[Rfam]
Shown here is a 94-nucleotide RNA sequence from Paenibacillus thalictri, a member of the family "c-di-GMP-I riboswitch aptamer". GEMM was predicted in a large-scale screen for bacterial structured RNA regulatory elements.

RNA sequence: UGUCGAUAAUGGCAAACUUGCUGAAAAGCAAGGACGCAAAGCUAAAGGGUCUAACGUUUCGGCCAGCCGAAACUAUGACAGCCUGGUUGCCGAA
Numbered sequence: 001u002g003u004c005g006a007u008a009a010u011g012g013c014a015a016a017c018u019u020g021c022u023g024a025a026a027a028g029c030a031a032g033g034a035c036g037c038a039a040a041g042c043u044a045a046a047g048g049g050u051c052u053a054a055c056g057u058u059u060c061g062g063c064c065a066g067c068c069g070a071a072a073c074u075a076u077g078a079c080a081g082c083c084u085g086g087u088u089g090c091c092g093a094a
Stems, first nucleotide, its partner, number of pairs: 012037002017032006040088004046084003049079003056073007